[Rfam]
RNA sequence: UUUCAAAAAGAGAGUCAUCAGUAAUGUCAAAGGUUGCAGAAAACUAGUUCCAGAGUCUAUAAAGUGAAUCCACUGGGGACGACCUGGAGAGAAGAGGAAAGUUUGUUUCAGAAGGAACUGUCUGAGAAAU
Dot-bracket structure: ((((.........................................................................................................................)))).
This 130-nucleotide sequence from Propithecus coquereli belongs to the Rfam family "Small nucleolar RNA SNORD22". The organism belongs to Propithecus, within Eukaryota. Rfam classes the family as a C/D-box small nucleolar RNA. On this family, see Tycowski et al., Nature 1996: "A mammalian gene with introns instead of exons generating stable RNA products".